[Rfam]
RNA sequence: AGUCGUGCGGUGAGAGUAGAGCGAACUAUUCUUUCGCCUUUUGCUAAAGAAUACCGUGUGCUCAUCGCUCAAAGCAUGCCUAUUUUUGGAAGCUAACUCCUUUAUUGGAGUG
Number, nucleotide and partner (000 for none) at each position: 001a000002g000003u000004c000005g000006u000007g000008c067009g066010g065011u064012g063013a062014g061015a000016g059017u058018a057019g000020a000021g000022c000023g000024a000025a000026c000027u053028a052029u051030u050031c049032u048033u047034u046035c000036g000037c000038c000039u000040u000041u000042u000043g000044c000045u000046a034047a033048a032049g031050a030051a029052u028053a027054c000055c000056g000057u018058g017059u016060g000061c014062u013063c012064a011065u010066c009067g008068c000069u000070c000071a000072a000073a000074g000075c000076a000077u000078g000079c000080c000081u000082a000083u000084u000085u000086u000087u000088g000089g000090a000091a000092g000093c000094u000095a000096a111097c110098u109099c108100c107101u000102u000103u000104a000105u000106u000107g100108g099109a098110g097111u096112g000
RNA: U5 spliceosomal RNA
Organism: Hibiscus trionum